Rfam assigns this 225-nucleotide sequence from Theileria equi to the family "Protozoan signal recognition particle RNA". It scores 103 bits against the family's covariance model.
RNA sequence: AUUGCUGUAACUUUUAGGGGCACGAGUGUGAACAUGAAGGGGUAGGUUCGAAGGGCUUUCAUCGGUUGGCGUCUGUCUGAAAUGGGCCAGAGUCGUUGGUGGGACCCGGCGUAGGUUGGGUCUCUCUGGCGAUGAUGCGCAGCGUAACGCCCCAGGCUGGCAACAGAGCAGGGAAGAGCUGCCGCUCUCGCAACAUGGCAGACCGCAGAUGCCGCCAGUAGGCUC
Numbered sequence: 001a002u003u004g005c006u007g008u009a010a011c012u013u014u015u016a017g018g019g020g021c022a023c024g025a026g027u028g029u030g031a032a033c034a035u036g037a038a039g040g041g042g043u044a045g046g047u048u049c050g051a052a053g054g055g056c057u058u059u060c061a062u063c064g065g066u067u068g069g070c071g072u073c074u075g076u077c078u079g080a081a082a083u084g085g086g087c088c089a090g091a092g093u094c095g096u097u098g099g100u101g102g103g104a105c106c107c108g109g110c111g112u113a114g115g116u117u118g119g120g121u122c123u124c125u126c127u128g129g130c131g132a133u134g135a136u137g138c139g140c141a142g143c144g145u146a147a148c149g150c151c152c153c154a155g156g157c158u159g160g161c162a163a164c165a166g167a168g169c170a171g172g173g174a175a176g177a178g179c180u181g182c183c184g185c186u187c188u189c190g191c192a193a194c195a196u197g198g199c200a201g202a203c204c205g206c207a208g209a210u211g212c213c214g215c216c217a218g219u220a221g222g223c224u225c
Stems, first nucleotide, its partner, number of pairs: 011018002053225006069212008077201003082196002086191002089188005094131006101124010133137001139182005150173003157166003

The base pairs follow the family's consensus structure, which is taken from published work. NCBI's taxonomy places the organism under Eukaryota, Sar, Alveolata, Apicomplexa, Theileria equi. The literature on the family includes a 2002 paper in Nucleic Acids Res by Regalia et al., "Prediction of signal recognition particle RNA genes". Rfam links the family to the GO terms signal recognition particle, endoplasmic reticulum targeting and SRP-dependent cotranslational protein targeting to membrane, signal sequence recognition.